The family of this 74-nucleotide sequence from Phtheirospermum japonicum is "Small nucleolar RNA R160". The organism belongs to Phtheirospermum, within Eukaryota. snoR160 is a C/D box small nucleolar RNA, which acts as a methylation guide for 25S ribosomal RNA in plants. snoR160 has been alternatively named snoZ270 in rice. The family has 9 seed sequences and 799 matches in Rfam 15.1. The family's RNA type in Rfam is C/D-box small nucleolar RNA. The base pairs follow the family's consensus structure.
RNA sequence: AGCAAAAUGAUGAGAAAUAAACGAUCCGAAGCCCGGUGUGGAAUAUUUAUAUCCUUCAAAGUUCUCUGAUUGCU
Numbered sequence: 001a002g003c004a005a006a007a008u009g010a011u012g013a014g015a016a017a018u019a020a021a022c023g024a025u026c027c028g029a030a031g032c033c034c035g036g037u038g039u040g041g042a043a044u045a046u047u048u049a050u051a052u053c054c055u056u057c058a059a060a061g062u063u064c065u066c067u068g069a070u071u072g073c074u
Base pairs, nucleotide, nucleotide: 001074002073003072004071005070